The family of this 261-nucleotide part of an RNA from Loigolactobacillus rennini is "Bacterial large subunit ribosomal RNA". NCBI's taxonomy places the organism under Bacteria, Bacillati, Bacilli, Loigolactobacillus, Loigolactobacillus rennini. The family's consensus secondary structure is taken from published work. The match comes from Rfam's covariance-model search (2886 bits). The family is grouped with related families in Rfam's "LSU clan".

RNA sequence: GGAAAUUUGCGUGGCGCUGUUCCUAGUACGAGAGGACCGGAAUGGACAUACCGCUGGUGUACCAGUUGUGCCGCCAGGCGCAGCGCUGGGUAGCUAAGUAUGGCCGGGAUAAACGCUGAAAGCAUCUAAGCGUGAAGCCCCCCACUAGAUAAGAUUUCCCAUUUCUUUAAGAAAGUAAGACCCCUACGAGAUGAGUAGGUAGAUAGCUUGGAGGUGGCAGUGCCGUGAGGCAUGGAGCUGACCAAGACUAAUCGGUCGAGG
Numbered sequence: 001g002g003a004a005a006u007u008u009g010c011g012u013g014g015c016g017c018u019g020u021u022c023c024u025a026g027u028a029c030g031a032g033a034g035g036a037c038c039g040g041a042a043u044g045g046a047c048a049u050a051c052c053g054c055u056g057g058u059g060u061a062c063c064a065g066u067u068g069u070g071c072c073g074c075c076a077g078g079c080g081c082a083g084c085g086c087u088g089g090g091u092a093g094c095u096a097a098g099u100a101u102g103g104c105c106g107g108g109a110u111a112a113a114c115g116c117u118g119a120a121a122g123c124a125u126c127u128a129a130g131c132g133u134g135a136a137g138c139c140c141c142c143c144a145c146u147a148g149a150u151a152a153g154a155u156u157u158c159c160c161a162u163u164u165c166u167u168u169a170a171g172a173a174a175g176u177a178a179g180a181c182c183c184c185u186a187c188g189a190g191a192u193g194a195g196u197a198g199g200u201a202g203a204u205a206g207c208u209u210g211g212a213g214g215u216g217g218c219a220g221u222g223c224c225g226u227g228a229g230g231c232a233u234g235g236a237g238c239u240g241a242c243c244a245a246g247a248c249u250a251a252u253c254g255g256u257c258g259a260g261g
Base pairs, nucleotide, nucleotide: 001159002158003157004156005155006154007153008152011145012144013143014142017045018044019043020042021041022040023039047102048101049100050099051098055096056095057094062089063088064087065086066085067082068081069080070079071078072077106140107139108138113133114132115131116130117129162174163173164172176259179257180256181255182254183199184198185197186196187195204250205249206248207246208245209244210243211242213239214238220233221232222231223230224229